[Rfam]
RNA sequence: AAAGGUCUUCGGGGCAAGGUGAAAUUCCUGACCGGCAGUGAUAGUCUGCGAGCGGAGCGGGGGAACCCGUGUUUCGCUGAACUGGUGAAAUUCCGGUACCGACGGUGAGAAAACGCCGCGCUUGGCGCGGGUUUCGCAGUCCGGAUGAGAGAAGAUCGCG
Numbered sequence: 001a002a003a004g005g006u007c008u009u010c011g012g013g014g015c016a017a018g019g020u021g022a023a024a025u026u027c028c029u030g031a032c033c034g035g036c037a038g039u040g041a042u043a044g045u046c047u048g049c050g051a052g053c054g055g056a057g058c059g060g061g062g063g064a065a066c067c068c069g070u071g072u073u074u075c076g077c078u079g080a081a082c083u084g085g086u087g088a089a090a091u092u093c094c095g096g097u098a099c100c101g102a103c104g105g106u107g108a109g110a111a112a113a114c115g116c117c118g119c120g121c122u123u124g125g126c127g128c129g130g131g132u133u134u135c136g137c138a139g140u141c142c143g144g145a146u147g148a149g150a151g152a153a154g155a156u157c158g159c160g
Stems, first nucleotide, its partner, number of pairs: 004157007017029003033101002035049004044099002052077005081097005103143003
Rfam assigns this 160-nucleotide RNA from Acutalibacter sp. 1XD8-33 to the family "FMN riboswitch aptamer (RFN element)".
Lineage of the source: Bacteria > Clostridia > Eubacteriales > Acutalibacteraceae > Acutalibacter.
It scores 94 bits against the family's covariance model.